This 80-nucleotide RNA from Leersia perrieri belongs to the Rfam family "Small nucleolar RNA Z168/Z174". The match comes from Rfam's covariance-model search (88 bits). Rfam links the family to the GO terms nucleolus and RNA processing. Taxonomically the source falls in Leersia (Eukaryota, Petrosaviidae, Oryzeae, Oryzinae). On this family, see Chen et al., Nucleic Acids Res 2003: "The high diversity of snoRNAs in plants: identification and comparative study of 120 snoRNA genes from Oryza sativa".
RNA sequence: GGGCCGAUGAUGCUAAACAUGCCCCUACGGUUCAAACCUGUGAGGAUUUUCCUAAGCAUAUUUCCCAAGAGCUGAGGCCC
Numbered sequence: 001g002g003g004c005c006g007a008u009g010a011u012g013c014u015a016a017a018c019a020u021g022c023c024c025c026u027a028c029g030g031u032u033c034a035a036a037c038c039u040g041u042g043a044g045g046a047u048u049u050u051c052c053u054a055a056g057c058a059u060a061u062u063u064c065c066c067a068a069g070a071g072c073u074g075a076g077g078c079c080c
Base pairs, nucleotide, nucleotide: 002079003078004077005076

Rfam 15.1 lists 65 matches to the family in 15 species.